[Rfam]
RNA sequence: AUUUCUUCUGCCAUGUAUCCUCGAUUGAUGCGGCCUCAGAUGCUUCA
Dot-bracket structure: .........(.(..........).)......(((.......)))...
RNA: Plastid-ycf3 group II-D1 intron